[Rfam]
RNA sequence: AUAAAGGUUAUCUUACAUGAUUCACUUAAUUCGCCUGCUAAGCCUACUACUAAUCGCCUUUAAUGUGCGCGGUGUGCUGGUAGGUGAAAAACAAAGUUAAGUUAACCUCCAUCAGAAAGCAAAAAACCCGCGCACCGCGCGGGUUUUUUU
Numbered sequence: 001a002u003a004a005a006g007g008u009u010a011u012c013u014u015a016c017a018u019g020a021u022u023c024a025c026u027u028a029a030u031u032c033g034c035c036u037g038c039u040a041a042g043c044c045u046a047c048u049a050c051u052a053a054u055c056g057c058c059u060u061u062a063a064u065g066u067g068c069g070c071g072g073u074g075u076g077c078u079g080g081u082a083g084g085u086g087a088a089a090a091a092c093a094a095a096g097u098u099a100a101g102u103u104a105a106c107c108u109c110c111a112u113c114a115g116a117a118a119g120c121a122a123a124a125a126a127c128c129c130g131c132g133c134a135c136c137g138c139g140c141g142g143g144u145u146u147u148u149u150u
Stems, first nucleotide, its partner, number of pairs: 004112001006107005012101004016096001018094001031087010048074004055069003123147011
Rfam assigns this 150-nucleotide RNA from Xenorhabdus koppenhoeferi to the family "Leucine operon leader". Lineage of the source: Bacteria > Pseudomonadota > Gammaproteobacteria > Enterobacterales > Xenorhabdus. On this family, see Kolter and Yanofsky, Annu Rev Genet 1982: "Attenuation in amino acid biosynthetic operons". It scores 76 bits against the family's covariance model.